[Rfam]
RNA sequence: AUUGCCCCAGCUCGUGUUGCAGGCGUGGCUGCAGUGCCACGUUUGUGUCAUUCGGUGGCAGAGAGGACAAGGCGAGGUCUUCCCCUGGUGCUCUGACCCACGUGGGCUCCCAGGAUUGCUCAAAAAC
Numbered sequence: 001a002u003u004g005c006c007c008c009a010g011c012u013c014g015u016g017u018u019g020c021a022g023g024c025g026u027g028g029c030u031g032c033a034g035u036g037c038c039a040c041g042u043u044u045g046u047g048u049c050a051u052u053c054g055g056u057g058g059c060a061g062a063g064a065g066g067a068c069a070a071g072g073c074g075a076g077g078u079c080u081u082c083c084c085c086u087g088g089u090g091c092u093c094u095g096a097c098c099c100a101c102g103u104g105g106g107c108u109c110c111c112a113g114g115a116u117u118g119c120u121c122a123a124a125a126a127c
Stems, first nucleotide, its partner, number of pairs: 002061005007055002010052001014048002019046004024041006074121003081115003087111002090107004